[Rfam]
mir-146 microRNA precursor family: an 88-nucleotide RNA sequence from Molossus molossus.
RNA sequence: UUGGCCACCUGGCUCUGAAAACUGAAUUCCAUAGGCUGCGAGCAAAUAAAUGCCCUAGGGACUCGGUUCUGGUGCCCAACUGUACUAC
Numbered sequence: 001u002u003g004g005c006c007a008c009c010u011g012g013c014u015c016u017g018a019a020a021a022c023u024g025a026a027u028u029c030c031a032u033a034g035g036c037u038g039c040g041a042g043c044a045a046a047u048a049a050a051u052g053c054c055c056u057a058g059g060g061a062c063u064c065g066g067u068u069c070u071g072g073u074g075c076c077c078a079a080c081u082g083u084a085c086u087a088c
Stems, first nucleotide, its partner, number of pairs: 011076003018070001020068006034054003
The organism belongs to Molossus, within Eukaryota. For this family Rfam cites "Kaposi's sarcoma-associated herpesvirus expresses an array of viral microRNAs in latently infected cells" (Cai et al., Proc Natl Acad Sci U S A, 2005).